Bacterial large subunit ribosomal RNA: a 335-nucleotide part of an RNA from Granulicella sp. WH15. A search with the family's covariance model found it, with a score of 2900 bits.
RNA sequence: CGAGUGAAAGCUUGUUAAGGAACUCGGCAAAUUAGACCCGUAACUUCGGGAGAAGGGUCGCCCACCUCUGGUGGGCCGCAGUGAAACGCGAACGGCGACUGUUUAACAAAAACACAGGUCUCUGCAAAGUCAAAAACGACGUAUAGGGGCUGACUCCUGCCCGGUGCCGGAAGGUUAAAAGGAGAGGUUAGCCGCAAGGCGAAGCUUUGAAUUGAAGCCCCGGUGAACGGCGGCCGUAACAAUAACGGUCCUAAGGUAGCGAAAUUCCUUGUCGGGUAAGUUCCGACCUGCACGAAUGGAGUAACGAUCGUUCGACUGUCUUAACGAGUUGCUCG
Numbered sequence: 001c002g003a004g005u006g007a008a009a010g011c012u013u014g015u016u017a018a019g020g021a022a023c024u025c026g027g028c029a030a031a032u033u034a035g036a037c038c039c040g041u042a043a044c045u046u047c048g049g050g051a052g053a054a055g056g057g058u059c060g061c062c063c064a065c066c067u068c069u070g071g072u073g074g075g076c077c078g079c080a081g082u083g084a085a086a087c088g089c090g091a092a093c094g095g096c097g098a099c100u101g102u103u104u105a106a107c108a109a110a111a112a113c114a115c116a117g118g119u120c121u122c123u124g125c126a127a128a129g130u131c132a133a134a135a136a137c138g139a140c141g142u143a144u145a146g147g148g149g150c151u152g153a154c155u156c157c158u159g160c161c162c163g164g165u166g167c168c169g170g171a172a173g174g175u176u177a178a179a180a181g182g183a184g185a186g187g188u189u190a191g192c193c194g195c196a197a198g199g200c201g202a203a204g205c206u207u208u209g210a211a212u213u214g215a216a217g218c219c220c221c222g223g224u225g226a227a228c229g230g231c232g233g234c235c236g237u238a239a240c241a242a243u244a245a246c247g248g249u250c251c252u253a254a255g256g257u258a259g260c261g262a263a264a265u266u267c268c269u270u271g272u273c274g275g276g277u278a279a280g281u282u283c284c285g286a287c288c289u290g291c292a293c294g295a296a297u298g299g300a301g302u303a304a305c306g307a308u309c310g311u312u313c314g315a316c317u318g319u320c321u322u323a324a325c326g327a328g329u330u331g332c333u334c335g
Base pairs, nucleotide, nucleotide: 001335002334003333004332009330010329011328012327013326014325015324016323018321019320020319035059036058037057038056039055044049060076061075062074063073064072065071066070077081089314090313091312092311093310094309095308096306097305100114101113102112117151118150119149120148121147122146123145124144125141129137130136154301155300156299157298159231160230161229164228165227166224167223168222169221170220173219174218175217179213180212184208185207186206187205188204191200192199232250233249234248235247236246237245251255261288271287272286273285274284275283276282